RNA sequence: UAAUGCUAUGAUGGUUCAUCUUUCGGGUCUGACUUCUGCUGAUGACCAUUUUUAUACUGAGCAUUA
Numbered sequence: 001u002a003a004u005g006c007u008a009u010g011a012u013g014g015u016u017c018a019u020c021u022u023u024c025g026g027g028u029c030u031g032a033c034u035u036c037u038g039c040u041g042a043u044g045a046c047c048a049u050u051u052u053u054a055u056a057c058u059g060a061g062c063a064u065u066a
Stems, first nucleotide, its partner, number of pairs: 001066006
Overview
A member of the RNA family "Small nucleolar RNA SNORD2" from Frankliniella occidentalis, 66 nucleotides long. Rfam classes the family as a C/D-box small nucleolar RNA.